[Rfam]
RNA sequence: GGCACCGUCGCUGACGUGUGCACGACACACCGGUAAGUCCGACGCGCCCCCGUGGCGCGGCCUUCCAGGCUUGGGAUUAC
Dot-bracket structure: .((((............))))...........((((..((...(((((.....)))))((((.....))))..)).))))